Annotation: Rfam assigns this 298-nucleotide RNA sequence from Mizuhopecten yessoensis to the family "Metazoan signal recognition particle RNA". The family's RNA type in Rfam is non-coding RNA gene. For this family Rfam cites "Kinship in the SRP RNA family" (Rosenblad et al., RNA Biol, 2009). The family's consensus secondary structure is taken from published work. The match comes from Rfam's covariance-model search (260 bits).

[Rfam]
RNA sequence: GCUGGGAGUUGUGGCGUGCUCCUGUAAUCCAGCUACCUGGAGGCUUGGUUUGGUGGACUGUUUGAGGGCGGGGGUCCUGCUUGCAGGUGCACUAUGUCGAUCGGGCGUCCGCGCUAAGUUUGGCAUCAAUAUGGCGACAUCGGGGGAGCCCAGUGUCACCAGGUUGUCUAAGGAGGGACGAAUCGGCCCAGGGUGGAAACACAGCAGGCAAAAGUCCCCGUGUCAAAUAGUAGUGGGAUCGCGCCCGUGAAUAGGCAUCCGUUGGUAGCUCGUCCAACAUAGUGGAACCCAUUCCUUU
Numbered sequence: 001g002c003u004g005g006g007a008g009u010u011g012u013g014g015c016g017u018g019c020u021c022c023u024g025u026a027a028u029c030c031a032g033c034u035a036c037c038u039g040g041a042g043g044c045u046u047g048g049u050u051u052g053g054u055g056g057a058c059u060g061u062u063u064g065a066g067g068g069c070g071g072g073g074g075u076c077c078u079g080c081u082u083g084c085a086g087g088u089g090c091a092c093u094a095u096g097u098c099g100a101u102c103g104g105g106c107g108u109c110c111g112c113g114c115u116a117a118g119u120u121u122g123g124c125a126u127c128a129a130u131a132u133g134g135c136g137a138c139a140u141c142g143g144g145g146g147a148g149c150c151c152a153g154u155g156u157c158a159c160c161a162g163g164u165u166g167u168c169u170a171a172g173g174a175g176g177g178a179c180g181a182a183u184c185g186g187c188c189c190a191g192g193g194u195g196g197a198a199a200c201a202c203a204g205c206a207g208g209c210a211a212a213a214g215u216c217c218c219c220g221u222g223u224c225a226a227a228u229a230g231u232a233g234u235g236g237g238a239u240c241g242c243g244c245c246c247g248u249g250a251a252u253a254g255g256c257a258u259c260c261g262u263u264g265g266u267a268g269c270u271c272g273u274c275c276a277a278c279a280u281a282g283u284g285g286a287a288c289c290c291a292u293u294c295c296u297u298u
Stems, first nucleotide, its partner, number of pairs: 001044003004023006028041003047295002051291003058285005066275007077268005083262002086259004092254004097249001102247007109237002112235005118228009127166004132161003136157005142151003167173002175218005186209003193202003